The record is an 83-nucleotide sequence, which matches "c-di-GMP-II-GAG riboswitch aptamer" in Rfam. The family is grouped with related families in Rfam's "c-di-GMP_II riboswitch clan".
RNA sequence: GCGUGAGGCGAACGCAGUGAUCCGUCGGCGAUGCACGGUCGCCGAGUCGGCGGGGAGCGAGUGGCGAGACCGACGCCUCCUCU
Numbered sequence: 001g002c003g004u005g006a007g008g009c010g011a012a013c014g015c016a017g018u019g020a021u022c023c024g025u026c027g028g029c030g031a032u033g034c035a036c037g038g039u040c041g042c043c044g045a046g047u048c049g050g051c052g053g054g055g056a057g058c059g060a061g062u063g064g065c066g067a068g069a070c071c072g073a074c075g076c077c078u079c080c081u082c083u
Stems, first nucleotide, its partner, number of pairs: 001083001003081001005079006013059003022053008037071002039067005